[Rfam]
A member of the RNA family "Mason-Pfizer monkey virus packaging signal" from Sciurus carolinensis, 276 nucleotides long.
Rfam 15.1 lists 2,921 matches to the family in 53 species.
By type it is a cis-regulatory element.
On this family, see Mustafa et al., Virus Res 2004: "Mutational analysis of the predicted secondary RNA structure of the Mason-Pfizer monkey virus packaging signal".
Nucleotides: 276
Base pairs, nucleotide, nucleotide: 006031007030008029013025014024035049036048038046085126086125095121097119102114103113135155137153140151141150143148160203161202162201163199164198211251212250213249214248215247216246217245220238221237223235224234225233261276263274264273266271
Number, partner (000 for none) and nucleotide at each position: 001000u002000g003000g004000c005000g006031c007030c008029c009000a010000a011000c012000a013025u014024g015000g016000g017000g018000c019000g020000u021000g022000g023000a024014c025013a026000c027000g028000g029008g030007g031006g032000a033000a034000a035049u036048c037000a038046c039000g040000a041000g042000g043000g044000a045000a046038g047000a048036g049035g050000c051000g052000u053000u054000u055000g056000a057000u058000a059000g060000u061000u062000c063000a064000a065000c066000c067000c068000a069000a070000c071000a072000c073000a074000g075000c076000a077000g078000a079000a080000g081000u082000c083000a084000g085126u086125u087000c088000a089000a090000c091000a092000a093000a094000g095121a096000u097119c098000u099000u100000c101000a102114u103113g104000u105000g106000a107000a108000c109000c110000u111000g112000c113103c114102a115000c116000a117000u118000c119097g120000c121095u122000c123000u124000u125086a126085a127000a128000u129000g130000u131000a132000c133000a134000g135155u136000a137153g138000c139000a140151c141150c142000a143148a144000a145000u146000u147000a148143u149000g150141g151140g152000a153137c154000a155135a156000g157000a158000u159000u160203u161202a162201a163199g164198u165000a166000a167000g168000c169000a170000u171000a172000a173000a174000g175000u176000u177000u178000u179000u180000g181000u182000u183000a184000a185000g186000c187000g188000a189000u190000u191000g192000a193000a194000a195000g196000a197000a198164g199163c200000c201162u202161u203160a204000a205000a206000g207000a208000c209000a210000c211251g212250g213249g214248g215247a216246g217245u218000a219000a220238g221237g222000g223235u224234u225233a226000a227000a228000a229000g230000u231000a232000a233225u234224g235223a236000g237221c238220u239000u240000u241000u242000u243000a244000a245217g246216u247215u248214u249213u250212u251211u252000a253000a254000a255000c256000c257000u258000a259000u260000c261276a262000a263274g264273g265000a266271c267000a268000c269000c270000u271266g272000c273264c274263c275000g276261u